[Rfam]
RNA: Small nucleolar RNA SNORA63
Organism: Chinchilla lanigera
RNA sequence: GUGUAGGAAAAGAGCAAAGUUAAGUGCUGUGCUGUCAUUCCCCCUGCUCAAAAUAAAGUUGUUGCUUAACUAUACCUGUCUGCUAUACCUAUGUAGCAGCCAGGGACACGUGGUCUCAUACAU
Numbered sequence: 001g002u003g004u005a006g007g008a009a010a011a012g013a014g015c016a017a018a019g020u021u022a023a024g025u026g027c028u029g030u031g032c033u034g035u036c037a038u039u040c041c042c043c044c045u046g047c048u049c050a051a052a053a054u055a056a057a058g059u060u061g062u063u064g065c066u067u068a069a070c071u072a073u074a075c076c077u078g079u080c081u082g083c084u085a086u087a088c089c090u091a092u093g094u095a096g097c098a099g100c101c102a103g104g105g106a107c108a109c110g111u112g113g114u115c116u117c118a119u120a121c122a123u
Base pairs, nucleotide, nucleotide: 001043011035013033014032015031016030018028019027020026075104076103077102078101080099081098082097083096